[Rfam]
Nucleotides: 161
Stems, first nucleotide, its partner, number of pairs: 012119004016048006023042005049089001051087001053086001055083003059079003062075002091114003094110003098106002134160005142153004
Number, partner (000 for none) and nucleotide at each position: 001000a002000u003000a004000c005000u006000u007000a008000c009000c010000u011000g012119g013118a014117c015116g016048g017047g018046g019045u020044c021043g022000a023042u024041g025040g026039g027038u028000g029000a030000u031000c032000a033000g034000c035000a036000a037000g038027g039026c040025c041024c042023a043021u044020g045019g046018c047017c048016u049089a050000a051087g052000u053086u054000g055083g056082c057081g058000a059079u060078u061077u062075c063074c064000a065000u066000u067000g068000c069000a070000c071000u072000c073000g074063g075062g076000a077061a078060a079059g080000g081057c082056g083055c084000u085000c086053g087051u088000c089049u090000a091114a092113g093112g094110u095109c096108g097000g098106c099105c100000c101000a102000a103000g104000u105099g106098g107000u108096c109095g110094a111000g112093c113092c114091u115000a116015c117014g118013u119012c120000a121000u122000a123000a124000u125000u126000u127000g128000u129000g130000g131000u132000a133000g134160u135159g136158g137157g138156g139000g140000c141000c142153u143152g144151c145150g146000u147000u148000c149000g150145c151144g152143c153142g154000g155000u156138c157137c158136c159135u160134g161000c
The family of this 161-nucleotide RNA from Sesamum indicum is "U1 spliceosomal RNA". The family's RNA type in Rfam is spliceosomal small nuclear RNA. Rfam describes the family as follows. U1 is a small nuclear RNA (snRNA) component of the spliceosome (involved in pre-mRNA splicing). Its 5' end forms complementary base pairs with the 5' splice junction, thus defining the 5' donor site of an intron. There are significant differences in sequence and secondary structure between metazoan and yeast U1 snRNAs, the latter being much longer (568 nucleotides as compared to 164 nucleotides in human). Nevertheless, secondary structure predictions suggest that all U1 snRNAs share a 'common core' consisting of helices I, II, the proximal region of III, and IV. This family does not contain the larger yeast sequences. The organism belongs to Sesamum, within Eukaryota. Clan: U1 clan. The base pairs follow the family's consensus structure, which is taken from published work.